A member of the RNA family "mir-1 microRNA precursor family" from Mesorhabditis belari, 78 nucleotides long. The base pairs follow the family's consensus structure, which was predicted with RNAalifold.

RNA sequence: CAAACAUCUCCGUGCUUCUUUUCUCAUUCCCAUACGGUCAUUUGUGCUAUGGAAUGUAAAGAAGUAUGUAGAUUGGAC
Dot-bracket structure: ......(((.(((((((((((...(((..(((((.............))))).))).))))))))))).)))......
Numbered sequence: 001c002a003a004a005c006a007u008c009u010c011c012g013u014g015c016u017u018c019u020u021u022u023c024u025c026a027u028u029c030c031c032a033u034a035c036g037g038u039c040a041u042u043u044g045u046g047c048u049a050u051g052g053a054a055u056g057u058a059a060a061g062a063a064g065u066a067u068g069u070a071g072a073u074u075g076g077a078c
Stems, first nucleotide, its partner, number of pairs: 007072003011068011025056003030052005